[Rfam]
RNA sequence: UCCCAGGUCGUCUAGUCGGCAAGACGCCGCACUCUGGAUGCGGAAAGCUGGGUUCGAAUCCUGGCCUGGGAG
Numbered sequence: 001u002c003c004c005a006g007g008u009c010g011u012c013u014a015g016u017c018g019g020c021a022a023g024a025c026g027c028c029g030c031a032c033u034c035u036g037g038a039u040g041c042g043g044a045a046a047g048c049u050g051g052g053u054u055c056g057a058a059u060c061c062u063g064g065c066c067u068g069g070g071a072g
Stems, first nucleotide, its partner, number of pairs: 001071007010025004027043005048064005
This 72-nucleotide RNA from Micromonospora sp. KC723 belongs to the Rfam family "tRNA".
The match comes from Rfam's covariance-model search (54 bits).
The organism belongs to Micromonospora, within Bacteria.
By type it is a transfer RNA.
Pairs were carried over by alignment from the consensus structure, which is taken from published work.
Gene Ontology term of the family: triplet codon-amino acid adaptor activity.